RNA sequence: CGAACAAGUCAGCCUAAUCUAGUCGCCCCAAAGGCUAGAGCGGGGGAACCAGUAAAGGGGCGUGUUUCCGAGUUCUCAAACCCCCAUGAAGGGUAAUCGGAGAAGGGUAUCUCUCAACCCUAGCCCGUCAGCUAACCUCGUCGGCAUUGAGGGAGACUGA
Number, nucleotide and partner (000 for none) at each position: 001c000002g000003a000004a000005c000006a000007a000008g000009u000010c000011a000012g145013c144014c143015u000016a000017a000018u039019c038020u037021a036022g035023u034024c033025g000026c000027c000028c000029c000030a000031a000032a000033g024034g023035c022036u021037a020038g019039a018040g141041c140042g139043g138044g137045g136046g000047a000048a000049c000050c057051a000052g000053u000054a000055a000056a000057g050058g126059g125060g124061c000062g000063u000064g000065u000066u102067u101068c100069c099070g098071a097072g000073u000074u000075c000076u000077c000078a000079a000080a000081c000082c000083c000084c000085c000086a000087u000088g000089a000090a000091g000092g000093g000094u000095a000096a000097u071098c070099g069100g068101a067102g066103a000104a000105g120106g119107g118108u117109a000110u000111c000112u000113c000114u000115c000116a000117a108118c107119c106120c105121u000122a000123g000124c060125c059126c058127g000128u000129c000130a000131g000132c000133u000134a000135a000136c045137c044138u043139c042140g041141u040142c000143g014144g013145c012146a000147u000148u000149g000150a000151g000152g000153g000154a000155g000156a000157c000158u000159g000160a000
Source information:
This 160-nucleotide RNA from Phormidium tenue belongs to the Rfam family "c-di-AMP riboswitch aptamer (ydaO/yuaA leader)". The match comes from Rfam's covariance-model search (68 bits). From the family's description: This family represents a conserved RNA structure found upstream of the ydaO and yuaA genes in Bacillus subtilis and related genes in other bacteria. The source organism's lineage runs through Bacteria, Oscillatoriophycideae, Oscillatoriales, Oscillatoriaceae and Phormidium tenue. Gene Ontology terms of the family: cyclic-di-AMP binding and regulation of gene expression.